M-box riboswitch aptamer (ykoK leader): a 171-nucleotide RNA from Vibrio cholerae. Rfam links the family to the GO terms regulation of gene expression and response to magnesium ion. From the family's description: M-box riboswitch, also know as ykoK leader is described as a metaloregulatory RNA that sense divalent metals and function as a genetic control element of genes related to divalent metal transport in bacteria. It was first reported upstream of the B.subtilis ykoK gene and genes with related functions in other bacteria. The pairing is the family consensus, mapped onto this sequence. The literature on the family includes a 2004 paper in Proc Natl Acad Sci U S A by Barrick et al., "New RNA motifs suggest an expanded scope for riboswitches in bacterial genetic control".

RNA sequence: ACAGCAUCUCGUUAGGCGAGGCUCCUGUACAAACAUAGGCCACUGAUCUCACGACAUCCAGAGAUGCCCAAGAUCAGGACAGUUUUCAUCGGAUUAAGGUGUUAACCCAAGUGGCUUUCGCGUGAGCGAAUACGUUGUGCAGUGCUGAAGCUGGGACUCGGGGAAUGAAGU
Dot-bracket structure: ....(((.(((([.(((..(((..((((((((......(((((.(((((.....((((....))))....)))))......(((...(((......])))...)))....))))).(((........)))....)))))))).)))...)))...))....)).)))....
Numbered sequence: 001a002c003a004g005c006a007u008c009u010c011g012u013u014a015g016g017c018g019a020g021g022c023u024c025c026u027g028u029a030c031a032a033a034c035a036u037a038g039g040c041c042a043c044u045g046a047u048c049u050c051a052c053g054a055c056a057u058c059c060a061g062a063g064a065u066g067c068c069c070a071a072g073a074u075c076a077g078g079a080c081a082g083u084u085u086u087c088a089u090c091g092g093a094u095u096a097a098g099g100u101g102u103u104a105a106c107c108c109a110a111g112u113g114g115c116u117u118u119c120g121c122g123u124g125a126g127c128g129a130a131u132a133c134g135u136u137g138u139g140c141a142g143u144g145c146u147g148a149a150g151c152u153g154g155g156a157c158u159c160g161g162g163g164a165a166u167g168a169a170g171u
Stems, first nucleotide, its partner, number of pairs: 005167003009163002011157002013097001015152003020146003025142008039115005045075005055066004082106003088100003117130003